[Rfam]
RNA sequence: UGGUAGAUGCACCUUGAUCUUCAACGUCCCCUGUUGGUUAACUAAUCGACAGGGUUUUUCUU
Numbered sequence: 001u002g003g004u005a006g007a008u009g010c011a012c013c014u015u016g017a018u019c020u021u022c023a024a025c026g027u028c029c030c031c032u033g034u035u036g037g038u039u040a041a042c043u044a045a046u047c048g049a050c051a052g053g054g055u056u057u058u059u060c061u062u
Stems, first nucleotide, its partner, number of pairs: 002013003029054010
Dot-bracket structure: .(((......)))...............((((((((((......))))))))))........
Nitrogen stress-induced RNA 1: a 62-nucleotide sequence from Calothrix sp. 336/3. The family's RNA type in Rfam is small RNA. NCBI's taxonomy places the organism under Bacteria, Cyanobacteriota, Cyanophyceae, Calotrichaceae, Calothrix. The base pairs follow the family's consensus structure.